[Rfam]
Nucleotides: 144
Stems, first nucleotide, its partner, number of pairs: 028063006034041002101129007109121002
Number, partner (000 for none) and nucleotide at each position: 001000a002000u003000c004000c005000g006000g007000c008000g009000u010000u011000g012000c013000u014000c015000c016000u017000c018000a019000c020000u021000g022000u023000a024000g025000a026000c027000a028063g029062u030061u031060g032059g033058u034041g035040u036000u037000a038000u039000u040035a041034c042000u043000u044000a045000a046000a047000g048000g049000u050000g051000g052000a053000a054000u055000g056000c057000c058033g059032c060031c061030a062029a063028c064000c065000g066000a067000g068000g069000u070000a071000a072000g073000g074000g075000a076000c077000u078000u079000c080000a081000c082000c083000u084000g085000u086000c087000c088000a089000c090000u091000g092000u093000a094000a095000a096000a097000a098000u099000g100000g101129c102128a103127g104126g105125c106124c107123u108000a109121u110120a111000g112000u113000c114000u115000u116000u117000g118000u119000c120110u121109a122000c123107a124106g125105g126104c127103c128102u129101g130000u131000u132000u133000u134000u135000a136000u137000u138000u139000u140000u141000u142000u143000a144000u